[Rfam]
RNA sequence: GGGAGUAGAUGGGUGCUGGUGUGCCCUCUGGUCUUCAAAACCAGUACGGGGCGUUAGGAGCGUCCUGGGUGGGUUCGAUUCCCACAUACUCCC
Numbered sequence: 001g002g003g004a005g006u007a008g009a010u011g012g013g014u015g016c017u018g019g020u021g022u023g024c025c026c027u028c029u030g031g032u033c034u035u036c037a038a039a040a041c042c043a044g045u046a047c048g049g050g051g052c053g054u055u056a057g058g059a060g061c062g063u064c065c066u067g068g069g070u071g072g073g074u075u076c077g078a079u080u081c082c083c084a085c086a087u088a089c090u091c092c093c
Base pairs, nucleotide, nucleotide: 001093002092003091004090005089006088007087008085011026012025013024014023015022016021028044029043030042031041032040047067048066049065050064051063070084071083072082073081
Dot-bracket structure: ((((((((..((((((....)))))).(((((.......)))))..(((((...........)))))..((((.......))))).)))))))
The record is a 93-nucleotide RNA sequence from Caldisalinibacter kiritimatiensis, which matches "Selenocysteine transfer RNA" in Rfam. The family's consensus secondary structure is taken from published work. It scores 77 bits against the family's covariance model.